[Rfam]
RNA: mir-375 microRNA precursor family
RNA sequence: UCUUCCUUGAUCCCUAUGAACAAAACUUCAAUGUAGUGUUUUGUUCGUUCGGCUCGAGUCAGAA
Numbered sequence: 001u002c003u004u005c006c007u008u009g010a011u012c013c014c015u016a017u018g019a020a021c022a023a024a025a026c027u028u029c030a031a032u033g034u035a036g037u038g039u040u041u042u043g044u045u046c047g048u049u050c051g052g053c054u055c056g057a058g059u060c061a062g063a064a
Stems, first nucleotide, its partner, number of pairs: 001063003006058005012052002017047002020044004025039002